[Rfam]
RNA sequence: CGCCCACAUUCUGAUUUGGGUCGACGCCCAAGCCAACCUGCCUUCCCGGGCAAGGUGGAUCGCGAAAGCGGAUGUGGCUCCUUGAGGAGCAACCAAACGGGCCAUG
Numbered sequence: 001c002g003c004c005c006a007c008a009u010u011c012u013g014a015u016u017u018g019g020g021u022c023g024a025c026g027c028c029c030a031a032g033c034c035a036a037c038c039u040g041c042c043u044u045c046c047c048g049g050g051c052a053a054g055g056u057g058g059a060u061c062g063c064g065a066a067a068g069c070g071g072a073u074g075u076g077g078c079u080c081c082u083u084g085a086g087g088a089g090c091a092a093c094c095a096a097a098c099g100g101g102c103c104a105u106g
Base pairs, nucleotide, nucleotide: 006075007074008073009072010071015031017030018029019028020027021026033058034057037055038054039053040051041050042049045101046100047099048098077090078089079088080087
A member of the RNA family "SAM-I/IV (S-adenosyl methionine) riboswitch aptamer" from Cupriavidus basilensis, 106 nucleotides long. The source organism's lineage runs through Bacteria, Pseudomonadota, Betaproteobacteria, Burkholderiales and Cupriavidus. Clan: SAM clan. The literature on the family includes a 2008 paper in RNA by Weinberg et al., "The aptamer core of SAM-IV riboswitches mimics the ligand-binding site of SAM-I riboswitches". Rfam links the family to the GO terms regulation of gene expression and S-adenosylmethionine metabolic process. The family's consensus secondary structure is taken from published work.